[Rfam]
RNA sequence: GGUCGGACCCCGCCGAACUCGCCGGCCUGAUGGUCGGCGGGACCGGGGACCCACCGCAGCACUGGGGUGAGUCCUGCCCGCGUACGGGGACGCCGGGCAGGUAGGGCACCUAACGGCCCGAACCCGUCAGCUAACUCGGUAGGCGGACGUGAGGAACGGA
Numbered sequence: 001g002g003u004c005g006g007a008c009c010c011c012g013c014c015g016a017a018c019u020c021g022c023c024g025g026c027c028u029g030a031u032g033g034u035c036g037g038c039g040g041g042a043c044c045g046g047g048g049a050c051c052c053a054c055c056g057c058a059g060c061a062c063u064g065g066g067g068u069g070a071g072u073c074c075u076g077c078c079c080g081c082g083u084a085c086g087g088g089g090a091c092g093c094c095g096g097g098c099a100g101g102u103a104g105g106g107c108a109c110c111u112a113a114c115g116g117c118c119c120g121a122a123c124c125c126g127u128c129a130g131c132u133a134a135c136u137c138g139g140u141a142g143g144c145g146g147a148c149g150u151g152a153g154g155a156a157c158g159g160a
Stems, first nucleotide, its partner, number of pairs: 011145004018041010042140006052064002065125003073101008104119004